[Rfam]
RNA: FMN riboswitch aptamer (RFN element)
Organism: Ktedonospora formicarum
RNA sequence: UAAGACCUUCGGGGCAGGGUGCAAUUCCCGACCGGCGGUGUUGCCUUGCAUGGGACCUCCUUCCAGGGACCAGAGGCAGAGCCCGCGAGUCCACAAGUCUGGCUUGUGUGAUUGAUUCGGUGUAAAUCCGAAGCCGACGGUAUAGUCCGGAUGGGAGAAGGUUUAU
Numbered sequence: 001u002a003a004g005a006c007c008u009u010c011g012g013g014g015c016a017g018g019g020u021g022c023a024a025u026u027c028c029c030g031a032c033c034g035g036c037g038g039u040g041u042u043g044c045c046u047u048g049c050a051u052g053g054g055a056c057c058u059c060c061u062u063c064c065a066g067g068g069a070c071c072a073g074a075g076g077c078a079g080a081g082c083c084c085g086c087g088a089g090u091c092c093a094c095a096a097g098u099c100u101g102g103c104u105u106g107u108g109u110g111a112u113u114g115a116u117u118c119g120g121u122g123u124a125a126a127u128c129c130g131a132a133g134c135c136g137a138c139g140g141u142a143u144a145g146u147c148c149g150g151a152u153g154g155g156a157g158a159a160g161g162u163u164u165a166u
Base pairs, nucleotide, nucleotide: 003164004163005162006161007160008159009158010157017029018028019027031146032145033136034135035086036085037084038083089112090111091110116132117131118130119129120128138149139148140147